[Rfam]
RNA sequence: GUGUCGAUGAGAUAUGUUUGAUAUUCUUGGUUGUUUUUUAGUAUCACCCAGGAAUCAAACAUAUUACCCAUCGACC
Numbered sequence: 001g002u003g004u005c006g007a008u009g010a011g012a013u014a015u016g017u018u019u020g021a022u023a024u025u026c027u028u029g030g031u032u033g034u035u036u037u038u039u040a041g042u043a044u045c046a047c048c049c050a051g052g053a054a055u056c057a058a059a060c061a062u063a064u065u066a067c068c069c070a071u072c073g074a075c076c
Base pairs, nucleotide, nucleotide: 006071009068011065012064013063014062015061016060017059018058019057020056021055022054024052025051029049030048032046033045
RNA: mir-190 microRNA precursor family